[Rfam]
FMN riboswitch aptamer (RFN element): a 147-nucleotide RNA from Microbacterium sp. Yaish 1. Taxonomically the source falls in Microbacterium (Bacteria, Bacillati, Actinomycetota, Actinomycetes). Rfam describes the family as follows. The RFN element is a highly conserved domain that is found frequently in the 5'-untranslated regions of prokaryotic mRNAs that encode for flavin mononucleotide (FMN) biosynthesis and transport proteins. This element is a metabolite-dependent riboswitch that directly binds FMN in the absence of proteins.

RNA sequence: AACGUGCUCCGGGGUCGGUGAGAAUCCGAACCGGCGGUGAGAGUCCGCGACCCUCGAGGCCCUCGGGCCGAGAGGUUGAUCCGGUGGAAUUCCGGGACCGACGGUGAUGCGACGCAAGUCGCUAGUCCGGAUGAGAGGAAGCACGGC
Dot-bracket structure: ..((((((((.....(((.......)))...((((((.....[[))))...((((................))))....(((((.......)))))]])).(((......................))).......)).))))))..